[Rfam]
RNA sequence: AAGGAGCAAUAAACCCUCUUUUGAUAGAACAAGAAAGGGUUUAUUGCUCCUUAUAUU
Numbered sequence: 001a002a003g004g005a006g007c008a009a010u011a012a013a014c015c016c017u018c019u020u021u022u023g024a025u026a027g028a029a030c031a032a033g034a035a036a037g038g039g040u041u042u043a044u045u046g047c048u049c050c051u052u053a054u055a056u057u
Base pairs, nucleotide, nucleotide: 001052002051003050004049005048006047007046008045009044010043011042012041013040014039015038016037019036020033021032022031023030
Annotation
This 57-nucleotide RNA belongs to the Rfam family "Plastid-psbA-2 3UTR RNA". Rfam describes the family as follows. Plastid psbA-2 is a non-coding RNA (ncRNA) present in plastids. It was identified in inverted repeat sequences in the 3 prime untranslate region (3UTR) of photosystem II quinone-binding protein (psbA). Clan: Plastid-psbA 3UTR RNA clan.